[Rfam]
RNA sequence: UCCCGACAAGGGGAUGGAGCUCCCCCUUCAACCGCCCUCGCAAGGGCUGAUGGCUCCUACCGCGAC
Dot-bracket structure: .........[[[[..((((((.]]]].......((((......))))....)))))).........
A member of the RNA family "Fluoride riboswitch aptamer (crcB RNA motif)" from Gluconobacter oxydans, 66 nucleotides long. The literature on the family includes a 2012 paper in Nature by Ren et al., "Fluoride ion encapsulation by Mg2+ ions and phosphates in a fluoride riboswitch". The source organism's lineage runs through Bacteria, Pseudomonadati, Pseudomonadota, Acetobacteraceae and Gluconobacter oxydans. Gene Ontology terms of the family: positive regulation of gene expression and response to fluoride.